[Rfam]
This 395-nucleotide part of an RNA from Blastomyces gilchristii belongs to the Rfam family "Eukaryotic large subunit ribosomal RNA".
RNA sequence: GAAGAUCACUGUAACAGUAAUUCAAUCUAGUUCAAGAGAAACUGUUGAUUCAGAUAAUUGAUUUUUGCAGCUGUCUGACCAGACAGUGCCAUGAUACUAUCAUCUGCUGAAUUAUGACUGAACAUCUCUAAGUCAGAAUUCAUGCUGAAACAUGACAAUGCUACCCUGCACAUCAUAGUUGAAUAUGAAUAGGUCUUCAGGCUCAGAAUCUCAGCAGGCCGGUGAUGGUGUCUGAGAAGAGACUCCCGGGCGCUUGCUGAUGAAUUGCAAUGUCAUCACACACAGGGAUAGAUUCUCUGCAGACAACUGAAAUGAUAAAGCAGGUCAUGUAAGUGAUCAAGUAGCCUUGUUGUUACAAGUCACUGAGCAUCAGCUCAAUCCUUGGCUCAAUUUGU
Numbered sequence: 001g002a003a004g005a006u007c008a009c010u011g012u013a014a015c016a017g018u019a020a021u022u023c024a025a026u027c028u029a030g031u032u033c034a035a036g037a038g039a040a041a042c043u044g045u046u047g048a049u050u051c052a053g054a055u056a057a058u059u060g061a062u063u064u065u066u067g068c069a070g071c072u073g074u075c076u077g078a079c080c081a082g083a084c085a086g087u088g089c090c091a092u093g094a095u096a097c098u099a100u101c102a103u104c105u106g107c108u109g110a111a112u113u114a115u116g117a118c119u120g121a122a123c124a125u126c127u128c129u130a131a132g133u134c135a136g137a138a139u140u141c142a143u144g145c146u147g148a149a150a151c152a153u154g155a156c157a158a159u160g161c162u163a164c165c166c167u168g169c170a171c172a173u174c175a176u177a178g179u180u181g182a183a184u185a186u187g188a189a190u191a192g193g194u195c196u197u198c199a200g201g202c203u204c205a206g207a208a209u210c211u212c213a214g215c216a217g218g219c220c221g222g223u224g225a226u227g228g229u230g231u232c233u234g235a236g237a238a239g240a241g242a243c244u245c246c247c248g249g250g251c252g253c254u255u256g257c258u259g260a261u262g263a264a265u266u267g268c269a270a271u272g273u274c275a276u277c278a279c280a281c282a283c284a285g286g287g288a289u290a291g292a293u294u295c296u297c298u299g300c301a302g303a304c305a306a307c308u309g310a311a312a313u314g315a316u317a318a319a320g321c322a323g324g325u326c327a328u329g330u331a332a333g334u335g336a337u338c339a340a341g342u343a344g345c346c347u348u349g350u351u352g353u354u355a356c357a358a359g360u361c362a363c364u365g366a367g368c369a370u371c372a373g374c375u376c377a378a379u380c381c382u383u384g385g386c387u388c389a390a391u392u393u394g395u
Stems, first nucleotide, its partner, number of pairs: 005159002010154003015147004020050001022048005051106005059099002066093002070089001071086006108142003115135005165286004290393005296310002299307001316385001318383003323375002333363004338359001341356005